[Rfam]
RNA sequence: AAGCGAGGGGUGUUUCAAGGACUGUCUAACCUGAGAAUGGUGAGGCAUGAGGGUCAAUCUCAGGUUUGUCAGCCCAUGAGACGCCGCCUCUAG
Numbered sequence: 001a002a003g004c005g006a007g008g009g010g011u012g013u014u015u016c017a018a019g020g021a022c023u024g025u026c027u028a029a030c031c032u033g034a035g036a037a038u039g040g041u042g043a044g045g046c047a048u049g050a051g052g053g054u055c056a057a058u059c060u061c062a063g064g065u066u067u068g069u070c071a072g073c074c075c076a077u078g079a080g081a082c083g084c085c086g087c088c089u090c091u092a093g
Stems, first nucleotide, its partner, number of pairs: 005090003009085008019075002022072003026068001028066009038056002

A member of the RNA family "mir-1388 microRNA precursor family" from Sphenodon punctatus, 93 nucleotides long. Gene Ontology terms of the family: miRNA-mediated post-transcriptional gene silencing and RISC complex. A reference for the family is Murchison et al. (2008), "Conservation of small RNA pathways in platypus", Genome Res. Rfam 15.1 lists 600 matches to the family in 570 species. The family's consensus secondary structure was predicted with RNAalifold.